[Rfam]
RNA sequence: UAUACAAUCAAGGGGUGCCAUUACUGGCUGAGAUCAUACCCUUACAACCUGAUGCGGGUAAUACCGACGUAGGAAUGAUGAACAAAGAAAUU
Numbered sequence: 001u002a003u004a005c006a007a008u009c010a011a012g013g014g015g016u017g018c019c020a021u022u023a024c025u026g027g028c029u030g031a032g033a034u035c036a037u038a039c040c041c042u043u044a045c046a047a048c049c050u051g052a053u054g055c056g057g058g059u060a061a062u063a064c065c066g067a068c069g070u071a072g073g074a075a076u077g078a079u080g081a082a083c084a085a086a087g088a089a090a091u092u
Base pairs, nucleotide, nucleotide: 007079008078009077010076011042012041013040014039016036017028018027019026020025048073049072050071051070055066056065057064
RNA: TPP riboswitch aptamer (THI element)